Source information:
The record is an 84-nucleotide RNA from Clostridiales bacterium CHKCI001, which matches "NiCo (Nickel/Cobalt) riboswitch aptamer" in Rfam. The family's consensus secondary structure is taken from published work.
[Rfam]
RNA sequence: CCAGUACAAACUGAACAGGUCAAAGCCUAUGGCUUGGAGCCGGGUCACAUAAGUGACAGUGGAUUGAUUACCCACGGGACAGUA
Numbered sequence: 001c002c003a004g005u006a007c008a009a010a011c012u013g014a015a016c017a018g019g020u021c022a023a024a025g026c027c028u029a030u031g032g033c034u035u036g037g038a039g040c041c042g043g044g045u046c047a048c049a050u051a052a053g054u055g056a057c058a059g060u061g062g063a064u065u066g067a068u069u070a071c072c073c074a075c076g077g078g079a080c081a082g083u084a
Stems, first nucleotide, its partner, number of pairs: 010083004016078001018041003023035005044057005059075004064070001
The source organism's lineage runs through Bacteria, Bacillati, Bacillota, Clostridia and Eubacteriales. On this family, see Furukawa et al., Mol Cell 2015: "Bacterial riboswitches cooperatively bind Ni(2+) or Co(2+) ions and control expression of heavy metal transporters".